[Rfam]
RNA sequence: GAGGGGGGACGACCCCCCCCCCCUCUAAAAAAAAUGAGGGGGGACGUGUCCCCC
Numbered sequence: 001g002a003g004g005g006g007g008g009a010c011g012a013c014c015c016c017c018c019c020c021c022c023c024u025c026u027a028a029a030a031a032a033a034a035u036g037a038g039g040g041g042g043g044a045c046g047u048g049u050c051c052c053c054c
Base pairs, nucleotide, nucleotide: 001020003018004017005016006015007014008013039054040053041052042051043050

Guanidine-II riboswitch aptamer (mini-ykkC): a 54-nucleotide sequence from Strongylocentrotus purpuratus. Rfam's curators write: Simpler in structure and has fewer highly conserved nucleotide positions than the ykkC-yxkD leader. Despite this each of its two stem-loop structures directly bind free guanidine. Therefore, mini-ykkC RNA motif represents a distinct class of guanidine-sensing RNAs. Its crystal structure was also determined. It scores 37 bits against the family's covariance model.